[Rfam]
RNA sequence: CUAGCACUUUGACAGAUCUUCCGCUUGGCAGUGGGGUCAAGAUUUGGUAGCUGGUGCUGAAAGAAAGCCCUUGAUUGCAUCCUCGCCUGGUGCUGUACCAGUGGCAGCUGUCACUCGGGGAUACAGAA
Numbered sequence: 001c002u003a004g005c006a007c008u009u010u011g012a013c014a015g016a017u018c019u020u021c022c023g024c025u026u027g028g029c030a031g032u033g034g035g036g037u038c039a040a041g042a043u044u045u046g047g048u049a050g051c052u053g054g055u056g057c058u059g060a061a062a063g064a065a066a067g068c069c070c071u072u073g074a075u076u077g078c079a080u081c082c083u084c085g086c087c088u089g090g091u092g093c094u095g096u097a098c099c100a101g102u103g104g105c106a107g108c109u110g111u112c113a114c115u116c117g118g119g120g121a122u123a124c125a126g127a128a
Base pairs, nucleotide, nucleotide: 003058004057005056006055007054008053013046014045015044017042018041019040020039022036024034025033070120071118072117073116074115076113077112079111080110083107085105086104087101088100089099090098
Rfam assigns this 128-nucleotide RNA from Octodon degus to the family "Small nucleolar RNA SNORA30/SNORA37 family". The family's RNA type in Rfam is H/ACA-box small nucleolar RNA. It scores 99 bits against the family's covariance model. Rfam's curators write: The members of this family belong to the H/ACA class of snoRNAs that guide the sites of modification of uridines to pseudouridines. This family includes human ACA30 (SNORA30), ACA37 (SNORA37) and the mouse homolog MBI-26. Both ACA37 and ACA30 are predicted to guide the pseudouridylation of residue U4643 of 28S rRNA.